RNA: Glycine riboswitch aptamer
RNA sequence: CGAACCGCGGCGGGAGAGUCCCGCAGCUGCGGGCGCCGAAGGAGCAACCUCCCCGGGAAUCUCUCAGGCCCCCUAGACCGCCGCUGGCGA
Numbered sequence: 001c002g003a004a005c006c007g008c009g010g011c012g013g014g015a016g017a018g019u020c021c022c023g024c025a026g027c028u029g030c031g032g033g034c035g036c037c038g039a040a041g042g043a044g045c046a047a048c049c050u051c052c053c054c055g056g057g058a059a060u061c062u063c064u065c066a067g068g069c070c071c072c073c074u075a076g077a078c079c080g081c082c083g084c085u086g087g088c089g090a
Base pairs, nucleotide, nucleotide: 007084008083009082010081011080012079013078020033021032022031023030035069036068037067038065039064042063043062044061048056049055